[Rfam]
Annotation: A member of the RNA family "Makes More Granules Regulator RNA (mmgR)" from Pseudoxanthobacter soli, 74 nucleotides long. It scores 66 bits against the family's covariance model. Taxonomically the source falls in Pseudoxanthobacter soli (Bacteria, Pseudomonadati, Segnochrobactraceae, Pseudoxanthobacter). SuhB later renamed mmgR (makes more granules regulator) was a putative non-coding RNA found multiple times in the Agrobacterium tumefaciens genome and related alpha-proteobacteria. Other non-coding RNAs uncovered in the same analysis include: speF, ybhL, metA, and serC.Several studies inSinorhizobium meliloti showed that suhB element is indeed a non-coding RNA:firstly it was detected on Northern blot and called Sm8RNA, secondly in an RNAseq study referred to as SmelC689.The mutant phenotype's (strain lacking the small RNA) cytoplasm contains higher content of polyhydroxybutyrate (PBH)storage granules than wild type strain. The sRNA is required to limit the PBH intracellular accumulation when the nitrogen-fixing Sinorhizobium meliloti is under condition of surplus carbon in relation to nitrogen. It has been renamed to mmgR. Further study confirmed that mmgR fine-tunes the regulation of PBH storage.Northern blot confirmed the expression of the sRNA in other rhizobia species.
RNA sequence: UCCAUUUGCCCUUUCGGGCGUUUCCUCCCAAGACUUAGGCCGUCUCCUUUGAGGCGGCUUUUUCUUUUUCAGGC
Numbered sequence: 001u002c003c004a005u006u007u008g009c010c011c012u013u014u015c016g017g018g019c020g021u022u023u024c025c026u027c028c029c030a031a032g033a034c035u036u037a038g039g040c041c042g043u044c045u046c047c048u049u050u051g052a053g054g055c056g057g058c059u060u061u062u063u064c065u066u067u068u069u070c071a072g073g074c
Stems, first nucleotide, its partner, number of pairs: 008019004038059009